[Rfam]
RNA: SAM riboswitch aptamer (S box leader)
RNA sequence: CAGUUAUCAAGAAAGGUGGAGGGACUAGACCCAAUGAAGCCUUGGCAACCCUUUUAAAAGUGAAUUCGCUUAAAAAGAAGGUGCUAAGUUCUAUUCAGAAUCUAAUAUUUUGAAAUAGAUAACAA
Numbered sequence: 001c002a003g004u005u006a007u008c009a010a011g012a013a014a015g016g017u018g019g020a021g022g023g024a025c026u027a028g029a030c031c032c033a034a035u036g037a038a039g040c041c042u043u044g045g046c047a048a049c050c051c052u053u054u055u056a057a058a059a060g061u062g063a064a065u066u067c068g069c070u071u072a073a074a075a076a077g078a079a080g081g082u083g084c085u086a087a088g089u090u091c092u093a094u095u096c097a098g099a100a101u102c103u104a105a106u107a108u109u110u111u112g113a114a115a116u117a118g119a120u121a122a123c124a125a
Base pairs, nucleotide, nucleotide: 003123004122005121006120007119008118013043014042015041016040017039021032022031023030026093027092028091029090044085045084046083047082049081050080051077052076053075054074089117094114095113096112097111098110099109100108101107